RNA sequence: CCAAAGCACUCUUGUAUGUCGCUCUGGAUAAGAGCGUCUGCCAAAUGCCUGAAA
Numbered sequence: 001c002c003a004a005a006g007c008a009c010u011c012u013u014g015u016a017u018g019u020c021g022c023u024c025u026g027g028a029u030a031a032g033a034g035c036g037u038c039u040g041c042c043a044a045a046u047g048c049c050u051g052a053a054a
Base pairs, nucleotide, nucleotide: 013043014041015040016039020036021035022034023033024032025031
Shown here is a 54-nucleotide RNA sequence from Hemibagrus wyckioides, a member of the family "UnaL2 LINE 3' element".
A search with the family's covariance model found it, with a score of 60 bits.
The organism belongs to Hemibagrus, within Eukaryota.
Rfam's curators write: The eel long interspersed element (LINE) UnaL2 and its partner short interspersed element (SINE) share a conserved 3' tail containing a stem-loop that is critical for their retrotransposition. Presumably, the first step of retrotransposition is the recognition of their 3' tails by UnaL2-encoded reverse transcriptase. The solution structure of a 17-nucleotide RNA derived from the 3' tail of UnaL2 was determined by NMR.